[Rfam]
Nucleotides: 065
Stems, first nucleotide, its partner, number of pairs: 001064003006059005012053002017048005024042004
Number, partner (000 for none) and nucleotide at each position: 001064g002063g003062a004000u005000g006059c007058u008057g009056g010055u011000c012053u013052c014000u015000u016000u017048u018047g019046g020045u021044g022000c023000u024042u025041a026040g027039a028000g029000u030000c031000a032000u033000u034000c035000c036000c037000u038000g039027u040026c041025u042024a043000g044021c045020a046019c047018c048017a049000u050000u051000u052013g053012a054000a055010a056009u057008c058007a059006g060000u061000u062003u063002c064001u065000u